[Rfam]
RNA sequence: AACUUAAUUUUGUUAUAACACAAGCAAAUCGGUAUAUUUUCCUAAGUGCUAUUAUCUAGGAUAAUAUACAGCUAAUUAGUAGGAAAAUUGGAUCUGCGGAGGCAUAAC
Numbered sequence: 001a002a003c004u005u006a007a008u009u010u011u012g013u014u015a016u017a018a019c020a021c022a023a024g025c026a027a028a029u030c031g032g033u034a035u036a037u038u039u040u041c042c043u044a045a046g047u048g049c050u051a052u053u054a055u056c057u058a059g060g061a062u063a064a065u066a067u068a069c070a071g072c073u074a075a076u077u078a079g080u081a082g083g084a085a086a087a088u089u090g091g092a093u094c095u096g097c098g099g100a101g102g103c104a105u106a107a108c
Base pairs, nucleotide, nucleotide: 024097025096026095028093029092030091036088037087038086039085040084041083042082043081048080049079050078051077

This 108-nucleotide RNA from Arsenophonus endosymbiont of Aleurodicus dispersus belongs to the Rfam family "t44 RNA".
The source organism's lineage runs through Bacteria, Pseudomonadati, Gammaproteobacteria, Enterobacterales and Arsenophonus.
This family consists of a number of bacterial RNA genes of between 135 and 170 bases in length.
The base pairs follow the family's consensus structure, which was predicted with LocARNA.
The literature on the family includes a 2002 paper in Nucleic Acids Res by Tjaden et al., "Transcriptome analysis of Escherichia coli using high-density oligonucleotide probe arrays".